[Rfam]
RNA sequence: AUGUAAAUGCAGGGGUGCCGUAAAGGCUGAGAGGAAAGAUUUCUAACCCUUUGAACCUGAUGUAACUAAGAUUACCGUAGGGAGCAUUAUAGUAUAUAUA
Number, nucleotide and partner (000 for none) at each position: 001a000002u000003g000004u000005a000006a088007a087008u086009g085010c084011a050012g049013g048014g047015g000016u000017g027018c026019c025020g000021u000022a000023a000024a000025g019026g018027c017028u000029g000030a000031g000032a000033g000034g043035a042036a041037a000038g000039a000040u000041u036042u035043c034044u000045a000046a000047c014048c013049c012050u011051u000052u000053g000054a000055a000056c081057c080058u079059g078060a000061u000062g075063u074064a073065a072066c000067u000068a000069a000070g000071a000072u065073u064074a063075c062076c000077g000078u059079a058080g057081g056082g000083a000084g010085c009086a008087u007088u006089a000090u000091a000092g000093u000094a000095u000096a000097u000098a000099u000100a000
TPP riboswitch aptamer (THI element): a 100-nucleotide RNA from Clostridium botulinum. A search with the family's covariance model found it, with a score of 76 bits. The base pairs follow the family's consensus structure, which is taken from published work.